[Rfam]
RNA sequence: AAAAAGGGCUUCUGCCAUGUGUGGCAUGGGGGGGCUUCAGCCACCCCUGUGGAAUCAACAUCAAGAGACUUUGGAAGCACAAUUUUUGUGGGAGGGAUUGCCAGAAACCGCCUGUUCUGGCACAA
Numbered sequence: 001a002a003a004a005a006g007g008g009c010u011u012c013u014g015c016c017a018u019g020u021g022u023g024g025c026a027u028g029g030g031g032g033g034g035c036u037u038c039a040g041c042c043a044c045c046c047c048u049g050u051g052g053a054a055u056c057a058a059c060a061u062c063a064a065g066a067g068a069c070u071u072u073g074g075a076a077g078c079a080c081a082a083u084u085u086u087u088g089u090g091g092g093a094g095g096g097a098u099u100g101c102c103a104g105a106a107a108c109c110g111c112c113u114g115u116u117c118u119g120g121c122a123c124a125a
Stems, first nucleotide, its partner, number of pairs: 008078005013026005027049006033042003050073004055068002096123001098122001100121005106116003
Annotation
Shown here is a 125-nucleotide RNA sequence from Bambusicola thoracicus, a member of the family "U11 spliceosomal RNA". The match comes from Rfam's covariance-model search (73 bits). It is annotated as a spliceosomal small nuclear RNA. For this family Rfam cites "Additional low-abundance human small nuclear ribonucleoproteins: U11, U12, etc" (Montzka and Steitz, Proc Natl Acad Sci U S A, 1988).